[Rfam]
RNA sequence: UCUACCUGAAAGACAAGGUAGUGAGAUGUGGUUGUCAGCUUACAUCUCACUACCCAUGUCUUUCAAGAGGAA
Number, nucleotide and partner (000 for none) at each position: 001u000002c000003u000004a000005c000006c000007u000008g064009a063010a062011a061012g060013a059014c058015a057016a000017g054018g053019u000020a051021g050022u049023g048024a047025g046026a045027u044028g043029u000030g000031g000032u000033u000034g000035u000036c000037a000038g000039c000040u000041u000042a000043c028044a027045u026046c025047u024048c023049a022050c021051u020052a000053c018054c017055c000056a000057u015058g014059u013060c012061u011062u010063u009064c008065a000066a000067g000068a000069g000070g000071a000072a000
Notes:
The record is a 72-nucleotide sequence from Hyalella azteca, which matches "mir-71 microRNA precursor family" in Rfam. On this family, see Li et al., BMC Genomics 2009: "Direct sequencing and expression analysis of a large number of miRNAs in Aedes aegypti and a multi-species survey of novel mosquito miRNAs". Rfam links the family to the GO terms miRNA-mediated post-transcriptional gene silencing and RISC complex. It scores 54 bits against the family's covariance model.